[Rfam]
Rfam assigns this 102-nucleotide RNA sequence from Rummeliibacillus sp. TYF005 to the family "Purine riboswitch aptamer". Rfam links the family to the GO term purine nucleobase biosynthetic process. Riboswitches are metabolite binding domains within certain messenger RNAs that serve as precision sensors for their corresponding targets. Allosteric rearrangement of mRNA structure is mediated by ligand binding, and this results in modulation of gene expression. A class of riboswitches that selectively recognises guanine and becomes saturated at concentrations as low as 5 nM. In Bacillus subtilis, this mRNA motif is located on at least five separate transcriptional units that together encode 17 genes that are mostly involved in purine transport and purine nucleotide biosynthesis. It has also been shown that some members of this family are specific for adenine instead. Hence this family are termed purine riboswitches. NCBI's taxonomy places the organism under Bacteria, Bacillota, Bacilli, Caryophanaceae, Rummeliibacillus.

RNA sequence: AAGUAAAUUAAAUAACGUCGUCGUAUAAUGUCGGGAAUAUGGCCCGAAAGUUUCUACCGAGUUACCGUAAAUGACUUGACUACGAUUUUAAUAAAGAAGAUA
Numbered sequence: 001a002a003g004u005a006a007a008u009u010a011a012a013u014a015a016c017g018u019c020g021u022c023g024u025a026u027a028a029u030g031u032c033g034g035g036a037a038u039a040u041g042g043c044c045c046g047a048a049a050g051u052u053u054c055u056a057c058c059g060a061g062u063u064a065c066c067g068u069a070a071a072u073g074a075c076u077u078g079a080c081u082a083c084g085a086u087u088u089u090a091a092u093a094a095a096g097a098a099g100a101u102a
Stems, first nucleotide, its partner, number of pairs: 020086006029049001031047005058078007